[Rfam]
RNA sequence: CGUCUCCGGAACGCCGGCCGGAAGUAAGCCGCUAGCAAAGCUGCGAGCUGAUGAACAAGAACAUCAUAUGAGGCGUAGGCCGGAGGCGAGUUGGCACAAGCCGACGGGGCGGCCUCCCGCGAAGCCGCGUGAUCUAACGGCCACCGUAAAUGAUGCAGUUGCGCAGUGACAGUGCAUGUU
Numbered sequence: 001c002g003u004c005u006c007c008g009g010a011a012c013g014c015c016g017g018c019c020g021g022a023a024g025u026a027a028g029c030c031g032c033u034a035g036c037a038a039a040g041c042u043g044c045g046a047g048c049u050g051a052u053g054a055a056c057a058a059g060a061a062c063a064u065c066a067u068a069u070g071a072g073g074c075g076u077a078g079g080c081c082g083g084a085g086g087c088g089a090g091u092u093g094g095c096a097c098a099a100g101c102c103g104a105c106g107g108g109g110c111g112g113c114c115u116c117c118c119g120c121g122a123a124g125c126c127g128c129g130u131g132a133u134c135u136a137a138c139g140g141c142c143a144c145c146g147u148a149a150a151u152g153a154u155g156c157a158g159u160u161g162c163g164c165a166g167u168g169a170c171a172g173u174g175c176a177u178g179u180u
Base pairs, nucleotide, nucleotide: 001016002015004013028180030178031177035173036172040167041166042165043164044163045162046160047159048158049157050156062155063154064153065152066151067150073147074146075145078142079141080140081139082138084115085114086113087112091107092106093105
Dot-bracket structure: ((.(........).))...........(.((...((...(((((((((((...........((((((.....(((..(((((.((((...(((...........)))....))))......................)))))..)))..))))))))))).))))))....))...)).)

Notes:
Shown here is a 180-nucleotide sequence from Marinobacter sp. ELB17, a member of the family "Group II catalytic intron D1-D4-3". Rfam links the family to the GO term Group II intron splicing. The source organism's lineage runs through Bacteria, Pseudomonadati, Pseudomonadota, Gammaproteobacteria and Marinobacter. Group II introns are found in rRNA, tRNA and mRNA of organelles in fungi, plants and protists, and also in mRNA in bacteria. Pairs were carried over by alignment from the consensus structure. The sequence is in the family's curated seed alignment.